Source information:
A member of the RNA family "Small nucleolar RNA Z157/R69/R10" from Triticum aestivum, 97 nucleotides long. Gene Ontology terms of the family: RNA processing and nucleolus. On this family, see Chen et al., Nucleic Acids Res 2003: "The high diversity of snoRNAs in plants: identification and comparative study of 120 snoRNA genes from Oryza sativa". The family is grouped with related families in Rfam's "SNORD52 clan". The base pairs follow the family's consensus structure, which was predicted with PFOLD. Lineage of the source: Eukaryota > Spermatophyta > Triticeae > Triticinae > Triticum. It is annotated as a C/D-box small nucleolar RNA.
RNA sequence: GUUCGAGCGGUGAUGACAUCUAUGUGGACUAGAGUUUCUGAGGUUGCCUCUUCAGCAGUGUGUUUGAAGACAAACCUUUGGCUGUCUAAGCUCCUAG
Numbered sequence: 001g002u003u004c005g006a007g008c009g010g011u012g013a014u015g016a017c018a019u020c021u022a023u024g025u026g027g028a029c030u031a032g033a034g035u036u037u038c039u040g041a042g043g044u045u046g047c048c049u050c051u052u053c054a055g056c057a058g059u060g061u062g063u064u065u066g067a068a069g070a071c072a073a074a075c076c077u078u079u080g081g082c083u084g085u086c087u088a089a090g091c092u093c094c095u096a097g
Base pairs, nucleotide, nucleotide: 002096005093006092007091008090035069036068037067038066043059044058045057046056047055